[Rfam]
RNA sequence: UCCUUCCUUGUCUUGGGGAGCUGGGUGGCCUAUGAUCGUCUAGUGAGUCCACCUCUGCUGAAGCCAAUUCAAAUUGCCCGCACCCACCUUAUGGCGAGUGCAAUUUUUGGAGGC
Numbered sequence: 001u002c003c004u005u006c007c008u009u010g011u012c013u014u015g016g017g018g019a020g021c022u023g024g025g026u027g028g029c030c031u032a033u034g035a036u037c038g039u040c041u042a043g044u045g046a047g048u049c050c051a052c053c054u055c056u057g058c059u060g061a062a063g064c065c066a067a068u069u070c071a072a073a074u075u076g077c078c079c080g081c082a083c084c085c086a087c088c089u090u091a092u093g094g095c096g097a098g099u100g101c102a103a104u105u106u107u108u109g110g111a112g113g114c
Base pairs, nucleotide, nucleotide: 005019006018007017008016009015020058021057023055024053025052026051027050028049030047037043080101081100082099083098085096087094088093